Shown here is an 87-nucleotide RNA sequence from Myotis lucifugus, a member of the family "mir-9195 microRNA precursor family". Taxonomically the source falls in Myotis (Eukaryota, Chordata, Teleostomi, Laurasiatheria).
RNA sequence: AGAGGCCCUCUGCGGCCGUGGCGGAACGCUUGCCUCGUCACCGCGGUGAUGAAGCAAGCAUUCCGCCAGGCAGCUCACACUGCCCAU
Numbered sequence: 001a002g003a004g005g006c007c008c009u010c011u012g013c014g015g016c017c018g019u020g021g022c023g024g025a026a027c028g029c030u031u032g033c034c035u036c037g038u039c040a041c042c043g044c045g046g047u048g049a050u051g052a053a054g055c056a057a058g059c060a061u062u063c064c065g066c067c068a069g070g071c072a073g074c075u076c077a078c079a080c081u082g083c084c085c086a087u
Base pairs, nucleotide, nucleotide: 004084005083006082012074013073015071016070017069020067021066022065023064024063025062026061028059029058030057031056032055033054037050038049039048040047041046